[Rfam]
Nucleotides: 422
Base pairs, nucleotide, nucleotide: 024055025053026052027051028050029049035042036041065072066071076103077102078101079100086094087093106320107319108318109317112151113150114149115148118145119144121142124139125138126137127136156261157260158258159257160256163254164253165252166251168245169244170243174239176236177235178234179233180232181231186202188201189200190199191198205209212222213221271290272289273288274287275286276285297314298313299312300311301310354361355360377388378387379386380385
Number, partner (000 for none) and nucleotide at each position: 001000u002000a003000a004000c005000c006000u007000c008000a009000g010000a011000u012000c013000a014000g015000g016000u017000a018000g019000g020000a021000a022000u023000a024055c025053c026052u027051g028050c029049u030000g031000a032000a033000c034000u035042u036041a037000a038000g039000c040000a041036u042035a043000u044000u045000a046000a047000u048000a049029a050028g051027c052026a053025g054000a055024g056000g057000a058000a059000a060000a061000g062000a063000a064000a065072c066071c067000a068000a069000c070000a071066g072065g073000g074000a075000u076103u077102g078101c079100c080000c081000u082000a083000g084000u085000a086094a087093c088000a089000g090000u091000a092000a093087g094086u095000a096000a097000a098000g099000c100079g101078g102077c103076a104000a105000c106320a107319g108318c109317u110000u111000a112151a113150a114149u115148u116000u117000g118145a119144a120000a121142u122000c123000u124139g125138g126137c127136c128000c129000u130000u131000u132000u133000u134000g135000g136127g137126g138125u139124c140000u141000a142121a143000g144119u145118u146000a147000u148115a149114a150113u151112u152000u153000g154000c155000a156261g157260a158258g159257g160256g161000c162000g163254c164253u165252u166251u167000g168245g169244u170243g171000u172000u173000a174239g175000c176236a177235g178234c179233g180232g181231u182000c183000u184000a185000a186202g187000u188201u189200c190199c191198u192000u193000g194000g195000a196000a197000c198191a199190g200189g201188a202186c203000g204000u205209u206000a207000c208000a209205g210000a211000g212222g213221g214000u215000a216000a217000g218000a219000a220000u221213c222212c223000u224000g225000u226000a227000c228000g229000u230000a231181g232180u233179c234178g235177c236176u237000a238000g239174c240000c241000u242000u243170c244169a245168c246000c247000g248000u249000g250000u251166a252165a253164a254163g255000c256160c257159c258158c259000u260157u261156c262000a263000a264000c265000a266000a267000g268000u269000c270000a271290a272289g273288u274287u275286g276285u277000u278000u279000g280000g281000g282000a283000a284000u285276g286275c287274a288273g289272c290271u291000c292000u293000a294000a295000a296000u297314a298313g299312g300311a301310g302000g303000u304000a305000a306000a307000u308000u309000u310301c311300u312299u313298c314297u315000a316000a317109a318108g319107c320106u321000a322000a323000a324000u325000a326000c327000u328000g329000g330000c331000c332000a333000g334000a335000g336000a337000c338000u339000a340000a341000u342000a343000g344000c345000g346000c347000a348000c349000a350000a351000g352000u353000a354361g355360a356000g357000u358000g359000a360355u361354c362000g363000a364000a365000a366000g367000a368000u369000g370000a371000a372000a373000a374000g375000c376000a377388c378387u379386u380385u381000g382000g383000a384000a385380a386379g387378a388377g389000a390000g391000u392000u393000a394000a395000a396000c397000a398000g399000u400000a401000c402000g403000u404000a405000a406000a407000a408000u409000u410000g411000u412000u413000a414000a415000a416000a417000g418000g419000g420000a421000a422000g

A member of the RNA family "Eukaryotic large subunit ribosomal RNA" from Dothidotthia symphoricarpi, 422 nucleotides of a longer RNA. A search with the family's covariance model found it, with a score of 3102 bits. Gene Ontology terms of the family: ribosome and structural constituent of ribosome. Taxonomically the source falls in Dothidotthia symphoricarpi (Eukaryota, Ascomycota, Pleosporomycetidae, Pleosporales).